[Rfam]
The record is a 130-nucleotide RNA from Semnornis frantzii, which matches "Small Cajal body specific RNA 8" in Rfam.
From the family's description: scaRNAs are a specific class of small nuclear RNAs which localise to the Cajal bodies and guide the modification of RNA polymerase II transcribed spliceosomal RNAs U1, U2, U4, U5 and U12. U92 belong to the H/ACA box class of guide RNAs as it has the predicted hairpin-hinge-hairpin-tail structure, conserved H/ACA-box motifs and is found associated with GAR1.
NCBI's taxonomy places the organism under Eukaryota, Metazoa, Dipnotetrapodomorpha, Ramphastidae, Semnornis.
For this family Rfam cites "RNomics: an experimental approach that identifies 201 candidates for novel, small, non-messenger RNAs in mouse" (Huttenhofer et al., EMBO J, 2001).
Pairs were carried over by alignment from the consensus structure, which is taken from published work.
Rfam links the family to the GO terms RNA processing, Cajal body and nucleolus.

RNA sequence: UGGGAGACUGAUACACAACUAGGGCUAAUUUUGCUCUAGUUGUCACACAUUCUCCCUACAGCAAAAUUGCCUUCUGAUGACCGGGACGAAUUGAGGGAAAUCGUAACGGACAGAUACGGGGCAGACAGUG
Numbered sequence: 001u002g003g004g005a006g007a008c009u010g011a012u013a014c015a016c017a018a019c020u021a022g023g024g025c026u027a028a029u030u031u032u033g034c035u036c037u038a039g040u041u042g043u044c045a046c047a048c049a050u051u052c053u054c055c056c057u058a059c060a061g062c063a064a065a066a067u068u069g070c071c072u073u074c075u076g077a078u079g080a081c082c083g084g085g086a087c088g089a090a091u092u093g094a095g096g097g098a099a100a101u102c103g104u105a106a107c108g109g110a111c112a113g114a115u116a117c118g119g120g121g122c123a124g125a126c127a128g129u130g
Stems, first nucleotide, its partner, number of pairs: 002056006015043004022036004067124007081109003086104004